[Rfam]
RNA sequence: ACACUUUUCAUUCAUUUAAGACGCCCUAUAUAGGGUGGUGCCGGACCUGUCCGGCUAUGGCGAUAAAUUGUGUCGUGUAAUAGGCGCAGCGGACCCGGGGGCAGUACCCGGCGGCUCCACCAGAAAGGGCUUCGUCCCAUAGCGAAGCCCGUCCUGACGGGGCCGAACCAGGAUAGACGUGUGUUGAAAGACGAUAUUUUUGCCCGGCCCGAGUAAGCCGUAAAACUGUUCAAAACCUACAAGUGCCAACGAUAACGAGGCUCUUGCUCUUGCUGCGUAAUUGAUGGGCUCACGCCCUGACAUUACCCAAAAAGAACGCGGUUGGACCCACCGGGCAACAGAAGCGGAUUCC
Numbered sequence: 001a002c003a004c005u006u007u008u009c010a011u012u013c014a015u016u017u018a019a020g021a022c023g024c025c026c027u028a029u030a031u032a033g034g035g036u037g038g039u040g041c042c043g044g045a046c047c048u049g050u051c052c053g054g055c056u057a058u059g060g061c062g063a064u065a066a067a068u069u070g071u072g073u074c075g076u077g078u079a080a081u082a083g084g085c086g087c088a089g090c091g092g093a094c095c096c097g098g099g100g101g102c103a104g105u106a107c108c109c110g111g112c113g114g115c116u117c118c119a120c121c122a123g124a125a126a127g128g129g130c131u132u133c134g135u136c137c138c139a140u141a142g143c144g145a146a147g148c149c150c151g152u153c154c155u156g157a158c159g160g161g162g163c164c165g166a167a168c169c170a171g172g173a174u175a176g177a178c179g180u181g182u183g184u185u186g187a188a189a190g191a192c193g194a195u196a197u198u199u200u201u202g203c204c205c206g207g208c209c210c211g212a213g214u215a216a217g218c219c220g221u222a223a224a225a226c227u228g229u230u231c232a233a234a235a236c237c238u239a240c241a242a243g244u245g246c247c248a249a250c251g252a253u254a255a256c257g258a259g260g261c262u263c264u265u266g267c268u269c270u271u272g273c274u275g276c277g278u279a280a281u282u283g284a285u286g287g288g289c290u291c292a293c294g295c296c297c298u299g300a301c302a303u304u305a306c307c308c309a310a311a312a313a314g315a316a317c318g319c320g321g322u323u324g325g326a327c328c329c330a331c332c333g334g335g336c337a338a339c340a341g342a343a344g345c346g347g348a349u350u351c352c
Stems, first nucleotide, its partner, number of pairs: 040055005059204005070197007085183003089180003095111005112165007205220004211231002216227001319333004324350002327347002
Dot-bracket structure: .......................................(((((......)))))...(((((......(((((((........(((.(((...(((((.......)))))(((((((........................................)))))))............)))))).......)))))))..)))))((((..[[...[))))......]..]].......................................................................................((((.[[.[[.))))............]].]]..